[Rfam]
Glycine riboswitch aptamer: a 95-nucleotide RNA from Peptoclostridium acidaminophilum. The organism belongs to Peptoclostridium acidaminophilum, within Bacteria. Rfam describes the family as follows. This family represents the bacterial glycine riboswitch.

RNA sequence: GGACGGGCCUCUGGAGAGACUCAUUAUGAGCGCCGAAGGGGAAAGCCAUAUAUACUAUGGUGAAGCUCUCAGGUAAAAGGGACAGGGGAUUUUAA
Numbered sequence: 001g002g003a004c005g006g007g008c009c010u011c012u013g014g015a016g017a018g019a020c021u022c023a024u025u026a027u028g029a030g031c032g033c034c035g036a037a038g039g040g041g042a043a044a045g046c047c048a049u050a051u052a053u054a055c056u057a058u059g060g061u062g063a064a065g066c067u068c069u070c071a072g073g074u075a076a077a078a079g080g081g082a083c084a085g086g087g088g089a090u091u092u093u094a095a
Base pairs, nucleotide, nucleotide: 006090008088009087010086011085012084013083020030021029022028023027032074033073034072035070036069039068040067041066045061046060047059048058049057050056